[Rfam]
RNA sequence: GCACUUAUAGUUCAGUUGGAUAGAGCGUUGGACUUCGAAUCCAGAAGUCGUGAGUUCGAAUCUCACUAAGUGCA
Numbered sequence: 001g002c003a004c005u006u007a008u009a010g011u012u013c014a015g016u017u018g019g020a021u022a023g024a025g026c027g028u029u030g031g032a033c034u035u036c037g038a039a040u041c042c043a044g045a046a047g048u049c050g051u052g053a054g055u056u057c058g059a060a061u062c063u064c065a066c067u068a069a070g071u072g073c074a
Base pairs, nucleotide, nucleotide: 001073002072003071004070005069006068007067010026011025012024013023028044029043030042031041032040050066051065052064053063054062
RNA: tRNA
Organism: Clostridium saccharobutylicum